[Rfam]
RNA sequence: UGUUGGCUUAGUUAGGGGGCAUAUAUCAAUUGGGGCCAAAUGUUUCAUGCAUUUGGUUCUUUUAUCCAAGUCCUUUUGAGGGAACUAUUCAGAUACAAUGAAUAUUUCUCCAAGCAGCCUUGGACAUGA
Numbered sequence: 001u002g003u004u005g006g007c008u009u010a011g012u013u014a015g016g017g018g019g020c021a022u023a024u025a026u027c028a029a030u031u032g033g034g035g036c037c038a039a040a041u042g043u044u045u046c047a048u049g050c051a052u053u054u055g056g057u058u059c060u061u062u063u064a065u066c067c068a069a070g071u072c073c074u075u076u077u078g079a080g081g082g083a084a085c086u087a088u089u090c091a092g093a094u095a096c097a098a099u100g101a102a103u104a105u106u107u108c109u110c111c112a113a114g115c116a117g118c119c120u121u122g123g124a125c126a127u128g129a
Base pairs, nucleotide, nucleotide: 004021005020007018008017009016034058035057036056037055038054040052041051042050043049066123067122068121069120070119071117075114076113077112078111080110081109082108083107084106086104087103088102
RNA: Small nucleolar RNA U19
Organism: Cuscuta australis